[Rfam]
RNA: Bacterial small signal recognition particle RNA
RNA sequence: AUAGUCGUGUGAGGCAAGUAUGCACUUCGAACCGUGUCAGGGUCGGAAGGCAGCAGCACUAAGGAGAUCGUGUAUUGUGCUUCACUUCUGAUGAAUAU
Numbered sequence: 001a002u003a004g005u006c007g008u009g010u011g012a013g014g015c016a017a018g019u020a021u022g023c024a025c026u027u028c029g030a031a032c033c034g035u036g037u038c039a040g041g042g043u044c045g046g047a048a049g050g051c052a053g054c055a056g057c058a059c060u061a062a063g064g065a066g067a068u069c070g071u072g073u074a075u076u077g078u079g080c081u082u083c084a085c086u087u088c089u090g091a092u093g094a095a096u097a098u
Stems, first nucleotide, its partner, number of pairs: 004092004009085006015077001017076006025066004034059004042051003
Dot-bracket structure: ...((((.(((((((.((((((..((((.....((((....(((....)))....))))...))))....)))))))..))))))...))))......